Annotation: A member of the RNA family "Archaeal large subunit ribosomal RNA" from a Candidatus Methanophagaceae archaeon, 447 nucleotides of a longer RNA.
RNA sequence: CCCCCCGAAACAUACCACAGUAUGACCCGACCUGAGAUAGAUAGCGUUGUAGAGCCACCGAUUGGAGGAUACGGGGUCGAAAGACCUCGCCCUCCUGUCAAACUCCGAAGGCGCUAUCGUCGUAGAAGGUCGGAGCCCGGGCUGGGGGGUAAGCUCCCAGUCCGUGAGGGAAAGAACCCGGACUGGGGUUAAGGUCCCCAAGUGUCGGCUAAGUGUCAACUCUAAAGAGCGUCACAAACCUCAGACAGCUGGGAGGUUAGCUUAGAAGCAGCUAUCCUCUAAGGAGUGCGUAACAGCUCACCAGCCGAGGUUUGUGGCAUCGAAAAUGGACGGGGCUUAAGCCGACCACCGAUACCCCAGGGCUCCGUGAGGAGAUCCGGUAGGGGGGCGUCCUGUCUGGGUGGAAGCAUCUUCGUGAGGAGGUGUGGACCGGGCAGGAACGAGAAU
Numbered sequence: 001c002c003c004c005c006c007g008a009a010a011c012a013u014a015c016c017a018c019a020g021u022a023u024g025a026c027c028c029g030a031c032c033u034g035a036g037a038u039a040g041a042u043a044g045c046g047u048u049g050u051a052g053a054g055c056c057a058c059c060g061a062u063u064g065g066a067g068g069a070u071a072c073g074g075g076g077u078c079g080a081a082a083g084a085c086c087u088c089g090c091c092c093u094c095c096u097g098u099c100a101a102a103c104u105c106c107g108a109a110g111g112c113g114c115u116a117u118c119g120u121c122g123u124a125g126a127a128g129g130u131c132g133g134a135g136c137c138c139g140g141g142c143u144g145g146g147g148g149g150u151a152a153g154c155u156c157c158c159a160g161u162c163c164g165u166g167a168g169g170g171a172a173a174g175a176a177c178c179c180g181g182a183c184u185g186g187g188g189u190u191a192a193g194g195u196c197c198c199c200a201a202g203u204g205u206c207g208g209c210u211a212a213g214u215g216u217c218a219a220c221u222c223u224a225a226a227g228a229g230c231g232u233c234a235c236a237a238a239c240c241u242c243a244g245a246c247a248g249c250u251g252g253g254a255g256g257u258u259a260g261c262u263u264a265g266a267a268g269c270a271g272c273u274a275u276c277c278u279c280u281a282a283g284g285a286g287u288g289c290g291u292a293a294c295a296g297c298u299c300a301c302c303a304g305c306c307g308a309g310g311u312u313u314g315u316g317g318c319a320u321c322g323a324a325a326a327u328g329g330a331c332g333g334g335g336c337u338u339a340a341g342c343c344g345a346c347c348a349c350c351g352a353u354a355c356c357c358c359a360g361g362g363c364u365c366c367g368u369g370a371g372g373a374g375a376u377c378c379g380g381u382a383g384g385g386g387g388g389c390g391u392c393c394u395g396u397c398u399g400g401g402u403g404g405a406a407g408c409a410u411c412u413u414c415g416u417g418a419g420g421a422g423g424u425g426u427g428g429a430c431c432g433g434g435c436a437g438g439a440a441c442g443a444g445a446a447u
Base pairs, nucleotide, nucleotide: 001388002387003386004385005384006383011024012023013022014021015020026135027133028132029131030130031129032128036121037120038119040118041117042116043115044114045113046112047111052106053104054103060099061098062097064095065094066093067092068091073088074087075086076085077084078083139163140162141161142160143159144158145157146156147155168179169178170177183360184359185358186357187356188355189354193350194349195348202347204346205345206344207343208342209341227321228320231318232317233316234315235314236313237312238311239310240309248305249304250303251302252301254278255277256276259273260272261271279283284299288297289296361378362377363374364373365372366371389442391439392438393437394436395435396434397433398432399431400430407426408425409424410423411422412421413420414419
Pairs were carried over by alignment from the consensus structure, which is taken from published work.